[Rfam]
RNA sequence: UUAUUUUUAAGACUAAAACACACACAUAUCAUAAGCCGAAAAUCGGGUGCUUAUGUAAUUUAAGUUGAUUUAUCGGGAUAUGUGGAGGCUAAAC
Dot-bracket structure: ......................((((((((......(((.(((((...(((((.......))))))))).).))).))))))))..........
t44 RNA: a 94-nucleotide sequence from Pseudactinobacillus ducreyi. The match comes from Rfam's covariance-model search (59 bits). NCBI's taxonomy places the organism under Bacteria, Pseudomonadati, Pseudomonadota, Pseudactinobacillus, Pseudactinobacillus ducreyi. The literature on the family includes a 2002 paper in Nucleic Acids Res by Tjaden et al., "Transcriptome analysis of Escherichia coli using high-density oligonucleotide probe arrays".